Nucleotides: 153
Stems, first nucleotide, its partner, number of pairs: 002035003006032001008030001013025003037057001039055002041052003064153005070082003086147005092141003098134002100131003103127006110119003
Number, partner (000 for none) and nucleotide at each position: 001000a002035u003034u004033g005000c006032u007000g008030u009000a010000a011000c012000g013025c014024g015023g016000g017000u018000u019000g020000u021000a022000g023015u024014u025013g026000a027000u028000g029000a030008a031000a032006a033004c034003a035002a036000a037057g038000c039055c040054g041052c042051g043050g044000g045000c046000u047000u048000g049000a050043u051042c052041g053000a054040u055039g056000c057037u058000g059000u060000g061000a062000a063000a064153c065152a066151g067150c068149g069000g070082g071081u072080u073000c074000c075000a076000g077000u078000c079000a080072a081071a082070c083000a084000u085000u086147g087146u088145c089144a090143g091000c092141a093140u094139g095000u096000a097000a098134c099133c100131c101130g102129g103127c104126a105125a106124g107123g108122u109000a110119u111118u112117g113000g114000c115000c116000a117112c118111a119110a120000a121000c122108a123107u124106c125105u126104u127103g128000c129102c130101c131100g132000a133099g134098g135000c136000g137000a138000u139094c140093a141092u142000a143090u144089u145088g146087g147086c148000g149068c150067g151066u152065u153064g